[Rfam]
The family of this 82-nucleotide sequence from Leptobrachium leishanense is "mir-2763 microRNA precursor family".
RNA sequence: UGCAUACCCAGGAAAGUAGUCAGCUCUAUAUAUAUUUAUAUAUAUAAAUAUAUAUAGAGCUGACUACUUUCCUGGGUAUGCA
Numbered sequence: 001u002g003c004a005u006a007c008c009c010a011g012g013a014a015a016g017u018a019g020u021c022a023g024c025u026c027u028a029u030a031u032a033u034a035u036u037u038a039u040a041u042a043u044a045u046a047a048a049u050a051u052a053u054a055u056a057g058a059g060c061u062g063a064c065u066a067c068u069u070u071c072c073u074g075g076g077u078a079u080g081c082a
Stems, first nucleotide, its partner, number of pairs: 002081005007075002010073013024059005031054004037046002
The family has 3 seed sequences and 59 matches in Rfam 15.1. Rfam links the family to the GO terms miRNA-mediated post-transcriptional gene silencing and RISC complex.